[Rfam]
RNA sequence: CCCCUUGGGGAGUAGCCUGCUUCCGUUAUGGAAGUUUUCGCAUCAACAUACUUGACGCCUUUGUCCUUCCGCGCGUCAUGGUGCGAAAGCCAUCCGGUUGGC
Numbered sequence: 001c002c003c004c005u006u007g008g009g010g011a012g013u014a015g016c017c018u019g020c021u022u023c024c025g026u027u028a029u030g031g032a033a034g035u036u037u038u039c040g041c042a043u044c045a046a047c048a049u050a051c052u053u054g055a056c057g058c059c060u061u062u063g064u065c066c067u068u069c070c071g072c073g074c075g076u077c078a079u080g081g082u083g084c085g086a087a088a089g090c091c092a093u094c095c096g097g098u099u100g101g102c
Stems, first nucleotide, its partner, number of pairs: 020034003036088010053078005
Shown here is a 102-nucleotide sequence from Massilia sp. KIM, a member of the family "Manganese Mn2+ riboswitch aptamer (yybP-ykoY)". Lineage of the source: Bacteria > Pseudomonadati > Pseudomonadota > Betaproteobacteria > Massilia. For this family Rfam cites "Novel small RNA-encoding genes in the intergenic regions of Escherichia coli" (Argaman et al., Curr Biol, 2001). It scores 45 bits against the family's covariance model.